[Rfam]
RNA sequence: GCUCAACACUCUGAAGAGUUGCCGCGCUUCGUCAGCCGGCACACCGAAGGAGCAAGCCCCGCCGCGGCCCGCGCGCAGGGUGAAUCUCUCAGGUACCGGACAGAGGGGGCGCA
Numbered sequence: 001g002c003u004c005a006a007c008a009c010u011c012u013g014a015a016g017a018g019u020u021g022c023c024g025c026g027c028u029u030c031g032u033c034a035g036c037c038g039g040c041a042c043a044c045c046g047a048a049g050g051a052g053c054a055a056g057c058c059c060c061g062c063c064g065c066g067g068c069c070c071g072c073g074c075g076c077a078g079g080g081u082g083a084a085u086c087u088c089u090c091a092g093g094u095a096c097c098g099g100a101c102a103g104a105g106g107g108g109g110c111g112c113a
Base pairs, nucleotide, nucleotide: 007107009105010104011103012102013101020041021040022039023038043094044093045092046090047089050088051087052086056081057080058079059078
RNA: Glycine riboswitch aptamer
Organism: Hydrogenophaga crocea